This 87-nucleotide RNA from Salibacterium salarium belongs to the Rfam family "pan motif". The family's consensus secondary structure is taken from published work. By type it is a cis-regulatory element. The match comes from Rfam's covariance-model search (56 bits). The organism belongs to Salibacterium, within Bacteria.
RNA sequence: UAGGCAAUAUCCAACAUGGAAUUGCACUAUUAAACGGGGUUGAUUUGCAACUCUGCCUUGAUCCAUUACCUGGACAAGGACGGAGAA
Numbered sequence: 001u002a003g004g005c006a007a008u009a010u011c012c013a014a015c016a017u018g019g020a021a022u023u024g025c026a027c028u029a030u031u032a033a034a035c036g037g038g039g040u041u042g043a044u045u046u047g048c049a050a051c052u053c054u055g056c057c058u059u060g061a062u063c064c065a066u067u068a069c070c071u072g073g074a075c076a077a078g079g080a081c082g083g084a085g086a087a
Stems, first nucleotide, its partner, number of pairs: 001029003004025005010020002053083003056079005062074003